A member of the RNA family "MIR1120/MIR1122 microRNA precursor family" from Aegilops tauschii, 86 nucleotides long. The base pairs follow the family's consensus structure, which was predicted with RNAalifold.
RNA sequence: AUACUCCCUCCGUCCCAUAAUGUAGGACGUUUUUUGAUACUAGUGUAGUGUCAAAAACGUCCUACAUUAUGGGACGGAGGGAAUAC
Numbered sequence: 001a002u003a004c005u006c007c008c009u010c011c012g013u014c015c016c017a018u019a020a021u022g023u024a025g026g027a028c029g030u031u032u033u034u035u036g037a038u039a040c041u042a043g044u045g046u047a048g049u050g051u052c053a054a055a056a057a058c059g060u061c062c063u064a065c066a067u068u069a070u071g072g073g074a075c076g077g078a079g080g081g082a083a084u085a086c
Stems, first nucleotide, its partner, number of pairs: 003084001005082001007080005013074005019068013033055009